[Rfam]
RNA sequence: UGACAGUGACGAUCCUAAUUAGGUCUCGUUCGUCGUAAUUGGCCAAGUUGGCCUUGCCGACAAAUCCUGUUAUACUCUGAGUCC
Numbered sequence: 001u002g003a004c005a006g007u008g009a010c011g012a013u014c015c016u017a018a019u020u021a022g023g024u025c026u027c028g029u030u031c032g033u034c035g036u037a038a039u040u041g042g043c044c045a046a047g048u049u050g051g052c053c054u055u056g057c058c059g060a061c062a063a064a065u066c067c068u069g070u071u072a073u074a075c076u077c078u079g080a081g082u083c084c
Stems, first nucleotide, its partner, number of pairs: 002083003045055002

Rfam assigns this 84-nucleotide RNA from Medicago truncatula to the family "Small nucleolar RNA Z43". The family's RNA type in Rfam is C/D-box small nucleolar RNA. For this family Rfam cites "The high diversity of snoRNAs in plants: identification and comparative study of 120 snoRNA genes from Oryza sativa" (Chen et al., Nucleic Acids Res, 2003). Its family is annotated with RNA processing and nucleolus in the Gene Ontology. The source organism's lineage runs through Eukaryota, Tracheophyta, Fabaceae, Papilionoideae and Medicago.